Record summary: A member of the RNA family "U11 spliceosomal RNA" from Dufourea novaeangliae, 140 nucleotides long. Rfam classes the family as a spliceosomal small nuclear RNA. For this family Rfam cites "Identification of an evolutionarily divergent U11 small nuclear ribonucleoprotein particle in Drosophila" (Schneider et al., Proc Natl Acad Sci U S A, 2004). It scores 103 bits against the family's covariance model. Taxonomically the source falls in Dufourea (Eukaryota, Protostomia, Panarthropoda, Eumetabola).

[Rfam]
RNA sequence: AAAAAGGGUGCUCGCUACUUUAAUAGCGCGUCAGUACGUUUUGUAUAACGUGCUGGCGGGGUAUGGCUAUCAAGACAUACCCAGUACGUAAUUUUUGUGAACGCGAGGCUGUUGGCUGCCAACUUUGCACCGACGCCUCC
Numbered sequence: 001a002a003a004a005a006g007g008g009u010g011c012u013c014g015c016u017a018c019u020u021u022a023a024u025a026g027c028g029c030g031u032c033a034g035u036a037c038g039u040u041u042u043g044u045a046u047a048a049c050g051u052g053c054u055g056g057c058g059g060g061g062u063a064u065g066g067c068u069a070u071c072a073a074g075a076c077a078u079a080c081c082c083a084g085u086a087c088g089u090a091a092u093u094u095u096u097g098u099g100a101a102c103g104c105g106a107g108g109c110u111g112u113u114g115g116c117u118g119c120c121a122a123c124u125u126u127g128c129a130c131c132g133a134c135g136c137c138u139c140c
Base pairs, nucleotide, nucleotide: 008087009086010085011084012083013028014027015026016025017024029058030057031056032055033054034053035052036051037050038049039048040047059082060081061080062079063078064077065076106138107137108136109135111134112133113132114131115130